[Rfam]
RNA sequence: GCACGUCCCGAACCUUUUCCAGUUCGGCAGCAAACUUGCGAGCGGUUACGGCUGGUGAUUAUGUGCAUAACAUUGGCAUACACUUUUCUCAAGUUUCCGUGCGGAUAGUUUUUACCGCAUAGCGAUUUUUAUCUCCGAGCGCACAAGGGCGCAUUUAUGGCAUUAUUCUAUCGCCUCUCUUUUCCAUACGACUCUCGCACUCCCAAAUUUGCGUGCUUUGCGUAUGCGGUCUAAAAACACGUUUUUAGCUGUUCCGACUUGCUACAUUGGUUUGUAGUUCCGCUCGGUGUGGUUAUUUAACACCCUAUUUAAGCGUUCCGAAACGCACGGACGAAUUUUUGAUUUUCCAAGCCUCAAAAAUAGGUUUCCCACAAAAAGGGCUUUUUGUUU
Numbered sequence: 001g002c003a004c005g006u007c008c009c010g011a012a013c014c015u016u017u018u019c020c021a022g023u024u025c026g027g028c029a030g031c032a033a034a035c036u037u038g039c040g041a042g043c044g045g046u047u048a049c050g051g052c053u054g055g056u057g058a059u060u061a062u063g064u065g066c067a068u069a070a071c072a073u074u075g076g077c078a079u080a081c082a083c084u085u086u087u088c089u090c091a092a093g094u095u096u097c098c099g100u101g102c103g104g105a106u107a108g109u110u111u112u113u114a115c116c117g118c119a120u121a122g123c124g125a126u127u128u129u130u131a132u133c134u135c136c137g138a139g140c141g142c143a144c145a146a147g148g149g150c151g152c153a154u155u156u157a158u159g160g161c162a163u164u165a166u167u168c169u170a171u172c173g174c175c176u177c178u179c180u181u182u183u184c185c186a187u188a189c190g191a192c193u194c195u196c197g198c199a200c201u202c203c204c205a206a207a208u209u210u211g212c213g214u215g216c217u218u219u220g221c222g223u224a225u226g227c228g229g230u231c232u233a234a235a236a237a238c239a240c241g242u243u244u245u246u247a248g249c250u251g252u253u254c255c256g257a258c259u260u261g262c263u264a265c266a267u268u269g270g271u272u273u274g275u276a277g278u279u280c281c282g283c284u285c286g287g288u289g290u291g292g293u294u295a296u297u298u299a300a301c302a303c304c305c306u307a308u309u310u311a312a313g314c315g316u317u318c319c320g321a322a323a324c325g326c327a328c329g330g331a332c333g334a335a336u337u338u339u340u341g342a343u344u345u346u347c348c349a350a351g352c353c354u355c356a357a358a359a360a361u362a363g364g365u366u367u368c369c370c371a372c373a374a375a376a377a378g379g380g381c382u383u384u385u386u387g388u389u390u
Base pairs, nucleotide, nucleotide: 008027009026010025011024012023013022051094052093053091054090055089101118102117103116104115122174123173124172125171139152140151141150142149185226186225187224188223189222190221197216198215199214200213203270204269205268206267227251228250229249231248232247233246234245235244236243237242261278262277263276264275265274266273279331280330281329282328286304287303288302289301290300313326314325315324316323317322349383350382351381352380353379363370364369

Shown here is a 390-nucleotide sequence, a member of the family "Bacteroidales-2 RNA". It is one of the family's seed sequences. It is annotated as a small RNA.